The family of this 121-nucleotide RNA sequence from Burkholderia sp. WAC0059 is "ZMP/ZTP riboswitch aptamer (pfl RNA motif)". The source organism's lineage runs through Bacteria, Pseudomonadati, Pseudomonadota, Betaproteobacteria and Burkholderia.

RNA sequence: UUGUCCCUGCGUGACUGGCGAUAGGGCUCCGCUCCUGCAAAAAAGGAGAAAAGGGGCUCAAGGUGGAGCAGCCCACCGUGAAGCGUAAGGGGCCGUUUUGCCGUUCGCCUGGGCAGCCGUG
Numbered sequence: 001u002u003g004u005c006c007c008u009g010c011g012u013g014a015c016u017g018g019c020g021a022u023a024g025g026g027c028u029c030c031g032c033u034c035c036u037g038c039a040a041a042a043a044a045g046g047a048g049a050a051a052a053g054g055g056g057c058u059c060a061a062g063g064u065g066g067a068g069c070a071g072c073c074c075a076c077c078g079u080g081a082a083g084c085g086u087a088a089g090g091g092g093c094c095g096u097u098u099u100g101c102c103g104u105u106c107g108c109c110u111g112g113g114c115a116g117c118c119g120u121g
Base pairs, nucleotide, nucleotide: 004091005090006089008087009086010085011084012083015080017109018108019107020106021105063076064075065074066073098116099115100114101113102112